[Rfam]
RNA: Group II catalytic intron D1-D4-7
Organism: Tuber melanosporum
RNA sequence: CCUCGAAUGGCCUUUCGUGUCUCUACCCAGACAUGCGUUAGAAGUAAUUCCAAGGUGUGAAGCUCUGGGGACAAUGCUUAAUUAGUUAGAGAAAAAAGCUAAGGUAAGCGAAAGCGAAGAUAUGUUUUUACAAUCCGUAUUUAAAAGCUUAU
Numbered sequence: 001c002c003u004c005g006a007a008u009g010g011c012c013u014u015u016c017g018u019g020u021c022u023c024u025a026c027c028c029a030g031a032c033a034u035g036c037g038u039u040a041g042a043a044g045u046a047a048u049u050c051c052a053a054g055g056u057g058u059g060a061a062g063c064u065c066u067g068g069g070g071a072c073a074a075u076g077c078u079u080a081a082u083u084a085g086u087u088a089g090a091g092a093a094a095a096a097a098g099c100u101a102a103g104g105u106a107a108g109c110g111a112a113a114g115c116g117a118a119g120a121u122a123u124g125u126u127u128u129u130a131c132a133a134u135c136c137g138u139a140u141u142u143a144a145a146a147g148c149u150u151a152u
Stems, first nucleotide, its partner, number of pairs: 002019001004017004027068005032059005038053002041050003082102005108115002127145004132140001